[Rfam]
RNA sequence: AGACCCAUCCCGUGGGAAUUAAAGGCCGAACGGACAGCCGGGGUCGAAUGCCGA
Numbered sequence: 001a002g003a004c005c006c007a008u009c010c011c012g013u014g015g016g017a018a019u020u021a022a023a024g025g026c027c028g029a030a031c032g033g034a035c036a037g038c039c040g041g042g043g044u045c046g047a048a049u050g051c052c053g054a
Base pairs, nucleotide, nucleotide: 002045003044004043005042007019008017009016010015
Rfam assigns this 54-nucleotide RNA sequence to the family "Streptococcus sRNA SpF59 (ldcC RNA)". The family's consensus secondary structure was predicted with mfold. For this family Rfam cites "Control of virulence by small RNAs in Streptococcus pneumoniae" (Mann et al., PLoS Pathog, 2012).